A member of the RNA family "U4 spliceosomal RNA" from Aspergillus terreus, 152 nucleotides long. By type it is a spliceosomal small nuclear RNA. From the family's description: U4 small nuclear RNA (U4 snRNA) is a component of the major U2-dependent spliceosome. Rfam's curators put it in the seed alignment.

[Rfam]
RNA sequence: AUCCUAGUGCAAGGGUUUUACACGUGUCAGUGAGGAGACAUCCGAGACCGUGUUUUUGCUAGUUGAAAACUACCUAGUUUGACCGCUCCAGAUGGCCUUCGGGUCGUCUGGGAAUUUUUGAAAAACACACUGCCCUGACUCCUCGUUUGUGG
Numbered sequence: 001a002u003c004c005u006a007g008u009g010c011a012a013g014g015g016u017u018u019u020a021c022a023c024g025u026g027u028c029a030g031u032g033a034g035g036a037g038a039c040a041u042c043c044g045a046g047a048c049c050g051u052g053u054u055u056u057u058g059c060u061a062g063u064u065g066a067a068a069a070c071u072a073c074c075u076a077g078u079u080u081g082a083c084c085g086c087u088c089c090a091g092a093u094g095g096c097c098u099u100c101g102g103g104u105c106g107u108c109u110g111g112g113a114a115u116u117u118u119u120g121a122a123a124a125a126c127a128c129a130c131u132g133c134c135c136u137g138a139c140u141c142c143u144c145g146u147u148u149g150u151g152g
Stems, first nucleotide, its partner, number of pairs: 020053005026048003034043003087112011126151003